This 131-nucleotide RNA from Castor canadensis belongs to the Rfam family "Small nucleolar RNA SNORA42/SNORA80 family".
The source organism's lineage runs through Eukaryota, Opisthokonta, Glires, Rodentia and Castor.
A search with the family's covariance model found it, with a score of 84 bits.
Rfam describes the family as follows. The members of this family belong to the H/ACA class of snoRNAs that guide the sites of modification of uridines to pseudouridines.
RNA sequence: GCAUGGAUUUGGAUUUAUGGCAGGCCUGUCCCUCUGGGCCUGUCAUGUAUCCCACAUCAGAGCAGACUGGCUCCAAACCAUUGCCUGUCCUCUGCCGGUAGACUGCUCACACUAAAGUGGGCUGCACAGUG
Numbered sequence: 001g002c003a004u005g006g007a008u009u010u011g012g013a014u015u016u017a018u019g020g021c022a023g024g025c026c027u028g029u030c031c032c033u034c035u036g037g038g039c040c041u042g043u044c045a046u047g048u049a050u051c052c053c054a055c056a057u058c059a060g061a062g063c064a065g066a067c068u069g070g071c072u073c074c075a076a077a078c079c080a081u082u083g084c085c086u087g088u089c090c091u092c093u094g095c096c097g098g099u100a101g102a103c104u105g106c107u108c109a110c111a112c113u114a115a116a117g118u119g120g121g122c123u124g125c126a127c128a129g130u131g
Base pairs, nucleotide, nucleotide: 001057004054005052006051007050008049015047017046018045019044020043022041023040024039025037026036068124069123070122071121072120073119080113086105087104090101091100